[Rfam]
RNA sequence: AAUCAUAUUAUCAAUGAAUGGAUUCACCUGUGAGAUGACGUGGUUGUUCCGCUUAGGAUGAUGACAUGGCAUCCUAUUAAUUUCGUACGAUGGCUGGUAAUUAUAGGAUGUCACAUCCUUGUCCUAAGUGGAACAACCACAUCAUAUCAUGGGCAAAUCCAUUCAUUCAUAGUAUGGUU
Numbered sequence: 001a002a003u004c005a006u007a008u009u010a011u012c013a014a015u016g017a018a019u020g021g022a023u024u025c026a027c028c029u030g031u032g033a034g035a036u037g038a039c040g041u042g043g044u045u046g047u048u049c050c051g052c053u054u055a056g057g058a059u060g061a062u063g064a065c066a067u068g069g070c071a072u073c074c075u076a077u078u079a080a081u082u083u084c085g086u087a088c089g090a091u092g093g094c095u096g097g098u099a100a101u102u103a104u105a106g107g108a109u110g111u112c113a114c115a116u117c118c119u120u121g122u123c124c125u126a127a128g129u130g131g132a133a134c135a136a137c138c139a140c141a142u143c144a145u146a147u148c149a150u151g152g153g154c155a156a157a158u159c160c161a162u163u164c165a166u167u168c169a170u171a172g173u174a175u176g177g178u179u
Base pairs, nucleotide, nucleotide: 001179002178003177004176005175006174007173009171010170011169013167014166015165017163018162019161021159022158023157024156027153028152030150031149032148033147035145036144037143038142041139042138043137044136045135046134047133048132051129052128054126055125057123058122063117064116069111070110071109072108073107074106075105076104077103079101082100083099